[Rfam]
RNA sequence: GUAUCCGGACGACCGGAUACCUAAUAACGAUGCAGGACGACCUGC
Numbered sequence: 001g002u003a004u005c006c007g008g009a010c011g012a013c014c015g016g017a018u019a020c021c022u023a024a025u026a027a028c029g030a031u032g033c034a035g036g037a038c039g040a041c042c043u044g045c
Stems, first nucleotide, its partner, number of pairs: 001020008032045005
The record is a 45-nucleotide RNA from Sideroxydans sp. CL21, which matches "Guanidine-II riboswitch aptamer (mini-ykkC)" in Rfam.
The organism belongs to Sideroxydans, within Bacteria.
The match comes from Rfam's covariance-model search (36 bits).